[Rfam]
RNA sequence: GGUCGCGAUGGAGAUGGCAUUCCUCCGACAACCGCCGCGCCCUGCGGCUGAUGAUGCCUACGUGUCG
Numbered sequence: 001g002g003u004c005g006c007g008a009u010g011g012a013g014a015u016g017g018c019a020u021u022c023c024u025c026c027g028a029c030a031a032c033c034g035c036c037g038c039g040c041c042c043u044g045c046g047g048c049u050g051a052u053g054a055u056g057c058c059u060a061c062g063u064g065u066c067g
Base pairs, nucleotide, nucleotide: 010026011025012024013023016058017057018056019055020054021053034048035047036046037045
Rfam assigns this 67-nucleotide RNA sequence from Burkholderia sp. WAC0059 to the family "Fluoride riboswitch aptamer (crcB RNA motif)". NCBI's taxonomy places the organism under Bacteria, Pseudomonadati, Betaproteobacteria, Burkholderiales, Burkholderia. It scores 53 bits against the family's covariance model.